[Rfam]
RNA sequence: CUGCACUAUGUUUCGAAGGCUAUGUCAAAUCGAAUGGCAUAGUCAUUGAGCAACAGCGCAUAAAGCGAGAGCUGUUAAAUCAGCAAGCGGCCAGACAACCGCUGGGAUAGAUCCACAGGUGAAACAGAUGUUUCUCUGUUUUCAGCUACUAAAUCUAUUCUACACUU
Numbered sequence: 001c002u003g004c005a006c007u008a009u010g011u012u013u014c015g016a017a018g019g020c021u022a023u024g025u026c027a028a029a030u031c032g033a034a035u036g037g038c039a040u041a042g043u044c045a046u047u048g049a050g051c052a053a054c055a056g057c058g059c060a061u062a063a064a065g066c067g068a069g070a071g072c073u074g075u076u077a078a079a080u081c082a083g084c085a086a087g088c089g090g091c092c093a094g095a096c097a098a099c100c101g102c103u104g105g106g107a108u109a110g111a112u113c114c115a116c117a118g119g120u121g122a123a124a125c126a127g128a129u130g131u132u133u134c135u136c137u138g139u140u141u142u143c144a145g146c147u148a149c150u151a152a153a154u155c156u157a158u159u160c161u162a163c164a165c166u167u
Stems, first nucleotide, its partner, number of pairs: 002060003006056001009052003013049004018044010104161008121142007